This 80-nucleotide sequence from Endozoicomonas numazuensis belongs to the Rfam family "Group II catalytic intron D1-D4-1". Pairs were carried over by alignment from the consensus structure. The match comes from Rfam's covariance-model search (59 bits). Taxonomically the source falls in Endozoicomonas (Bacteria, Pseudomonadota, Gammaproteobacteria, Endozoicomonadaceae). Group II introns are found in rRNA, tRNA and mRNA of organelles in fungi, plants and protists, and also in mRNA in bacteria.

[Rfam]
RNA sequence: CUGAGGCUAUCGUAAGGUGGUCUGAUCGCCAUACAGAAGUCAGCAGACGGCAUAGUAGCUGGCGAAUGUCAGUGAAGGCC
Numbered sequence: 001c002u003g004a005g006g007c008u009a010u011c012g013u014a015a016g017g018u019g020g021u022c023u024g025a026u027c028g029c030c031a032u033a034c035a036g037a038a039g040u041c042a043g044c045a046g047a048c049g050g051c052a053u054a055g056u057a058g059c060u061g062g063c064g065a066a067u068g069u070c071a072g073u074g075a076a077g078g079c080c
Base pairs, nucleotide, nucleotide: 004023005022006021007020008019009018010017011016039048040047041046049080050079051078058073059072060071061070062069063068